[Rfam]
RNA sequence: GUCGUAGCGUGGGCUGGUAACUCCACCACCGUUGGCGUUGUUGAUCAGCCAACGGGGGCAGAGUUCCCUCUCCUAGUUGCGAG
Numbered sequence: 001g002u003c004g005u006a007g008c009g010u011g012g013g014c015u016g017g018u019a020a021c022u023c024c025a026c027c028a029c030c031g032u033u034g035g036c037g038u039u040g041u042u043g044a045u046c047a048g049c050c051a052a053c054g055g056g057g058g059c060a061g062a063g064u065u066c067c068c069u070c071u072c073c074u075a076g077u078u079g080c081g082a083g
Stems, first nucleotide, its partner, number of pairs: 003081006011073002016068002019065005026058002029055008
mir-2765 microRNA precursor family: an 83-nucleotide sequence from Plutella xylostella.